[Rfam]
Annotation: A member of the RNA family "Fluoride riboswitch aptamer (crcB RNA motif)" from Aminobacter sp. MSH1, 61 nucleotides long. Rfam links the family to the GO terms positive regulation of gene expression and response to fluoride. NCBI's taxonomy places the organism under Bacteria, Pseudomonadati, Hyphomicrobiales, Phyllobacteriaceae, Aminobacter. Pairs were carried over by alignment from the consensus structure, which is taken from published work.
RNA sequence: CUCGCUAAUGGGGAUGGGGUCCCCCAUUGCAUGCUGGCCGGCUGAUGACUCCUACCGUUAG
Numbered sequence: 001c002u003c004g005c006u007a008a009u010g011g012g013g014a015u016g017g018g019g020u021c022c023c024c025c026a027u028u029g030c031a032u033g034c035u036g037g038c039c040g041g042c043u044g045a046u047g048a049c050u051c052c053u054a055c056c057g058u059u060a061g
Base pairs, nucleotide, nucleotide: 010025011024012023013022016052017051018050019049020048021047